[Rfam]
RNA sequence: CGCUUGCGUGGACGGGGGCUAAAACCACCACUAGCGCGCAGGGGAUAGCCGAGACUAGGGGGAUAGCGUCUGAGAUAUCGGCAAUGGGAUGGCGAAGCUAGCGUCCCAAAGGGUGCGUAGAGGCUGGCGGGC
Numbered sequence: 001c002g003c004u005u006g007c008g009u010g011g012a013c014g015g016g017g018g019c020u021a022a023a024a025c026c027a028c029c030a031c032u033a034g035c036g037c038g039c040a041g042g043g044g045a046u047a048g049c050c051g052a053g054a055c056u057a058g059g060g061g062g063a064u065a066g067c068g069u070c071u072g073a074g075a076u077a078u079c080g081g082c083a084a085u086g087g088g089a090u091g092g093c094g095a096a097g098c099u100a101g102c103g104u105c106c107c108a109a110a111g112g113g114u115g116c117g118u119a120g121a122g123g124c125u126g127g128c129g130g131g132c
Base pairs, nucleotide, nucleotide: 001044003042004041005040006039007038008037009036010035031058032057033056034055049081050080051079052078054076069110085108086107087106088105089104090103097128098127099126100125101124102123
RNA: Betaproteobacteria-1 RNA
Organism: Trinickia fusca